[Rfam]
RNA sequence: AAAACAAAUAAACUCCGAGCAAAAGUGUCUAAGGGAUUAAUUUCUAUGAUGCUGCGCUAAAGCAUUUUAGCUUUCGGGUUAGACUGGAAACGGUAUAGCCUUCCGAUUUUGAAAAGGAGCAUUAAUUACAAAUGU
Number, nucleotide and partner (000 for none) at each position: 001a000002a000003a000004a000005c000006a126007a000008a000009u000010a000011a000012a000013c119014u118015c117016c116017g000018a000019g057020c056021a000022a000023a000024a053025g052026u051027g050028u049029c048030u000031a000032a000033g045034g044035g043036a042037u000038u000039a000040a000041u000042u036043u035044c034045u033046a000047u000048g029049a028050u027051g026052c025053u024054g000055c000056g020057c019058u000059a074060a073061a072062g071063c070064a000065u000066u000067u000068u000069a000070g063071c062072u061073u060074u059075c000076g101077g100078g099079u098080u097081a096082g000083a094084c093085u092086g091087g000088a000089a000090a000091c086092g085093g084094u083095a000096u081097a080098g079099c078100c077101u076102u112103c111104c000105g000106a000107u000108u000109u000110u000111g103112a102113a000114a000115a000116g016117g015118a014119g013120c000121a000122u000123u000124a000125a000126u006127u000128a000129c000130a000131a000132a000133u000134g000135u000
RNA: Molybdenum/Tungsten riboswitch aptamer (Moco RNA motif)